A member of the RNA family "GAIT element" from Machaerirhynchus nigripectus, 75 nucleotides long. The family's consensus secondary structure is taken from published work. Rfam classes the family as a cis-regulatory element. Gene Ontology term of the family: negative regulation of translation. Rfam's curators write: This family represents a cis-acting element in the 3'-UTR of the ceruloplasmin (Cp) gene called gamma interferon inhibitor of translation (GAIT). The GAIT element is involved in selective translational silencing of the Cp transcript. Ceruloplasmin (Cp) is a multifunctional, copper-containing glycoprotein produced by the liver and secreted into the plasma. As an acute-phase protein, its plasma concentration can double during multiple inflammatory conditions.

RNA sequence: ACAUGGGACAUGGUAAAAUAGGAAGUAACUUGGGAAUUACAGCUGUAUACUUCUGAAAUAAACUUAGAACCAUAC
Numbered sequence: 001a002c003a004u005g006g007g008a009c010a011u012g013g014u015a016a017a018a019u020a021g022g023a024a025g026u027a028a029c030u031u032g033g034g035a036a037u038u039a040c041a042g043c044u045g046u047a048u049a050c051u052u053c054u055g056a057a058a059u060a061a062a063c064u065u066a067g068a069a070c071c072a073u074a075c
Stems, first nucleotide, its partner, number of pairs: 003073004010065001012063001022053006033044002